A member of the RNA family "mir-362 microRNA precursor family" from Pipistrellus kuhlii, 65 nucleotides long.
[Rfam]
RNA sequence: CUUGAAUCCUUGGAACCUAGGUGUGAGUGUUAUUUCAAUGCAACACACCUAUCCAAGGGUUCAAA
Numbered sequence: 001c002u003u004g005a006a007u008c009c010u011u012g013g014a015a016c017c018u019a020g021g022u023g024u025g026a027g028u029g030u031u032a033u034u035u036c037a038a039u040g041c042a043a044c045a046c047a048c049c050u051a052u053c054c055a056a057g058g059g060u061u062c063a064a065a
Stems, first nucleotide, its partner, number of pairs: 004062011018051008028042003